Shown here is a 42-nucleotide RNA from Nonomuraea polychroma, a member of the family "L31-Actinobacteria ribosomal protein leader".
RNA sequence: GCGGUUCCGGUUCACGCCCAGCAUGACGGCGACCCGGCGGCC
Numbered sequence: 001g002c003g004g005u006u007c008c009g010g011u012u013c014a015c016g017c018c019c020a021g022c023a024u025g026a027c028g029g030c031g032a033c034c035c036g037g038c039g040g041c042c
Stems, first nucleotide, its partner, number of pairs: 003042003007037004015031004019025002
The base pairs follow the family's consensus structure, which is taken from published work. The organism belongs to Nonomuraea, within Bacteria. Rfam classes the family as a cis-regulatory leader.